[Rfam]
RNA sequence: AGAUUGUGGUGAGGGAAAUUUCUAAGCAUACCCUUAAAUUUUUCUCAAUCUUGGUAAAGAUUUUCUCCUUCUUUCUGCCUAAAUCUCAGAAUCUCUCUUCUCAAGCAU
Numbered sequence: 001a002g003a004u005u006g007u008g009g010u011g012a013g014g015g016a017a018a019u020u021u022c023u024a025a026g027c028a029u030a031c032c033c034u035u036a037a038a039u040u041u042u043u044c045u046c047a048a049u050c051u052u053g054g055u056a057a058a059g060a061u062u063u064u065c066u067c068c069u070u071c072u073u074u075c076u077g078c079c080u081a082a083a084u085c086u087c088a089g090a091a092u093c094u095c096u097c098u099u100c101u102c103a104a105g106c107a108u
Stems, first nucleotide, its partner, number of pairs: 001108001004105001005103002057074002
This 108-nucleotide RNA sequence from Capsicum annuum belongs to the Rfam family "Plant small nucleolar RNA R71". Rfam links the family to the GO terms RNA processing and nucleolus. The family has 25 seed sequences and 278,378 matches in Rfam 15.1. A reference for the family is Brown et al. (2003), "Plant snoRNAs: functional evolution and new modes of gene expression", Trends Plant Sci.